[Rfam]
RNA sequence: AAAUCAUGUUGUGGGCAAUGUCUCAACAAUCCCUUGUAUAUUUCCCAAGCUUCAUAUAAGGACUCCUCACUCUCUUGUUGGAAGUUAGCUAUUUUUUUCUUGAGUUU
Numbered sequence: 001a002a003a004u005c006a007u008g009u010u011g012u013g014g015g016c017a018a019u020g021u022c023u024c025a026a027c028a029a030u031c032c033c034u035u036g037u038a039u040a041u042u043u044c045c046c047a048a049g050c051u052u053c054a055u056a057u058a059a060g061g062a063c064u065c066c067u068c069a070c071u072c073u074c075u076u077g078u079u080g081g082a083a084g085u086u087a088g089c090u091a092u093u094u095u096u097u098u099c100u101u102g103a104g105u106u107u
Stems, first nucleotide, its partner, number of pairs: 001107001003105002005102002058073001060071001
This 107-nucleotide RNA sequence from Lactuca saligna belongs to the Rfam family "Plant small nucleolar RNA R71". Lineage of the source: Eukaryota > Magnoliopsida > Mesangiospermae > asterids > Lactuca.